[Rfam]
RNA: Small nucleolar RNA SNORD94
Organism: Galemys pyrenaicus
RNA sequence: UGGGUUAAGGCACCGGGUUCCAAACCUCAGCUGAGUCACGGGAGCUGAGUGCUGCUUCUCUGUUCAGCAUGUGGCAGGUUGUUGAUGAGCACUUACAUGAGGGGGAAAAAAAUUCUUUUGUUUAUAUGACACUUUCUCUGCCCA
Numbered sequence: 001u002g003g004g005u006u007a008a009g010g011c012a013c014c015g016g017g018u019u020c021c022a023a024a025c026c027u028c029a030g031c032u033g034a035g036u037c038a039c040g041g042g043a044g045c046u047g048a049g050u051g052c053u054g055c056u057u058c059u060c061u062g063u064u065c066a067g068c069a070u071g072u073g074g075c076a077g078g079u080u081g082u083u084g085a086u087g088a089g090c091a092c093u094u095a096c097a098u099g100a101g102g103g104g105g106a107a108a109a110a111a112a113u114u115c116u117u118u119u120g121u122u123u124a125u126a127u128g129a130c131a132c133u134u135u136c137u138c139u140g141c142c143c144a
Stems, first nucleotide, its partner, number of pairs: 001144005